RNA: tRNA
RNA sequence: CGGAGUGUAGCGCAGUCUGGUAGCGCGCCUGCUUUGGGAGCAGGAUGUCGGGGGUUCGAAUCCCUCCACUCCGA
Numbered sequence: 001c002g003g004a005g006u007g008u009a010g011c012g013c014a015g016u017c018u019g020g021u022a023g024c025g026c027g028c029c030u031g032c033u034u035u036g037g038g039a040g041c042a043g044g045a046u047g048u049c050g051g052g053g054g055u056u057c058g059a060a061u062c063c064c065u066c067c068a069c070u071c072c073g074a
Base pairs, nucleotide, nucleotide: 001073002072003071004070005069006068007067010026011025012024013023028044029043030042031041032040050066051065052064053063054062